[Rfam]
RNA sequence: UGGUGGUGAUGUCUUCUCAAUCUCACGAUGGUCUUCAGAGCUCUUCUGGAAGAGGGGAGGCUGCUGACAAUGCCAGUGGCUGUGGCUGAACCGUGAGC
Numbered sequence: 001u002g003g004u005g006g007u008g009a010u011g012u013c014u015u016c017u018c019a020a021u022c023u024c025a026c027g028a029u030g031g032u033c034u035u036c037a038g039a040g041c042u043c044u045u046c047u048g049g050a051a052g053a054g055g056g057g058a059g060g061c062u063g064c065u066g067a068c069a070a071u072g073c074c075a076g077u078g079g080c081u082g083u084g085g086c087u088g089a090a091c092c093g094u095g096a097g098c
Base pairs, nucleotide, nucleotide: 001093002092003091004090
Rfam assigns this 98-nucleotide RNA sequence from Psilopogon haemacephalus to the family "Small nucleolar RNA SNORD35". NCBI's taxonomy places the organism under Eukaryota, Opisthokonta, Sauropsida, Sauria, Psilopogon. The match comes from Rfam's covariance-model search (56 bits). Its Rfam clan is "SNORD35 clan". The family's RNA type in Rfam is C/D-box small nucleolar RNA. The family's consensus secondary structure was predicted with PFOLD.